[Rfam]
RNA sequence: AGAGUGAGCGAGGUGGUUGCAGAUUUAUCUAAAUUAGGUAAAUUUGAGGAAAGUCCGGACUCCCGAAAGACCAUACUUGCUGGGUAAUGCCCAGUGCGAGCGAUCGCGAGGAAAGUGCCACAGAAAAAUACCGCCGAAAUUUUAGCAACGGUUAACAAUGUUAAAUUGCUAACUAAUAACUAAAUAAAGGUAAGGGUGCAAAGGUGUCGGUAAGAGCGCACCAGCAGUAUCGAGAGGUACUGGCUCGGUAAACCCCGGUAGGGAGCAAGGGCGAAGGGAUAAUGGUUGGUCUUUUUCCAUUCCCGAUCAAGGUGAACCGCAAGAGGUGUUUGGUAACAAGCAUCCCAGAUAGAUAACUACCCUUGACUAUAUUUUGUACAAUAUACUACAUUAUGUAGUUAAGAACAGAAUCCGGCUUACGUUCCCACUCUCUCU
Dot-bracket structure: ((((((.(.(.(((((((.(((((((((.........)))))))))....[[[.[[[[[((((.....[[...(((.(((((((.....)))))(((((....)))).)((...(((((...........(((((...(((.........................................)))...)))..)).......((((.((.......)))))).((((((((....))))))).)..)))..))))))))).))))...((..........(.((...((..(...]].)..)))).).........))......((((((((....))))))))..........))))))).................................................]]]]]]]]...).).))))))....
Shown here is a 435-nucleotide RNA from Chondrocystis sp. NIES-4102, a member of the family "Bacterial RNase P class A". The base pairs follow the family's consensus structure, which is taken from published work. By type it is a ribozyme. Its family is annotated with tRNA processing, dimeric ribonuclease P complex and ribonuclease P activity in the Gene Ontology.